[Rfam]
RNA sequence: UAUUAGGUUGGUGCAAAUGUAAUUGCUGUUUUUGUCAUUAAAAGUAAUGGCAAAAACUGCAAUUACAUUUGUACUAACCUAACA
Numbered sequence: 001u002a003u004u005a006g007g008u009u010g011g012u013g014c015a016a017a018u019g020u021a022a023u024u025g026c027u028g029u030u031u032u033u034g035u036c037a038u039u040a041a042a043a044g045u046a047a048u049g050g051c052a053a054a055a056a057c058u059g060c061a062a063u064u065a066c067a068u069u070u071g072u073a074c075u076a077a078c079c080u081a082a083c084a
Stems, first nucleotide, its partner, number of pairs: 001084001003082024028057013
This 84-nucleotide RNA sequence from Nomascus leucogenys belongs to the Rfam family "mir-548 microRNA precursor family".
The family's consensus secondary structure was predicted with WAR.
The match comes from Rfam's covariance-model search (90 bits).
The organism belongs to Nomascus, within Eukaryota.
Rfam 15.1 lists 3,009 matches to the family in 27 species.